[Rfam]
RNA sequence: ACAUGGGGAUAUGCUAAUGGUGGGCCCUUCUCUGUGGGCCUCUCAUAGUGGACCCAUGCCAGAGGAGCGGGCAGCCCCGAACCAUUGCCCAACCUCCUCACUGGUGAGCUGUGAGCGCUGAAGGGGGCUGUCCAGUG
Number, nucleotide and partner (000 for none) at each position: 001a000002c058003a057004u056005g054006g053007g000008g000009a000010u000011a000012u000013g000014c000015u048016a000017a046018u045019g044020g043021u000022g041023g040024g039025c037026c036027c000028u000029u000030c000031u000032c000033u000034g000035u000036g026037g025038g000039c024040c023041u022042c000043u020044c019045a018046u017047a000048g015049u000050g000051g000052a000053c006054c005055c000056a004057u003058g002059c000060c000061a000062g000063a000064g000065g000066a000067g000068c000069g000070g000071g000072c130073a129074g128075c127076c126077c125078c000079g000080a000081a000082c000083c120084a119085u000086u000087g000088c115089c000090c111091a110092a000093c108094c000095u106096c000097c000098u000099c000100a000101c000102u000103g000104g000105u000106g095107a000108g093109c000110u091111g090112u000113g000114a000115g088116c000117g000118c000119u084120g083121a000122a000123g000124g000125g077126g076127g075128c074129u073130g072131u000132c000133c000134a000135g000136u000137g000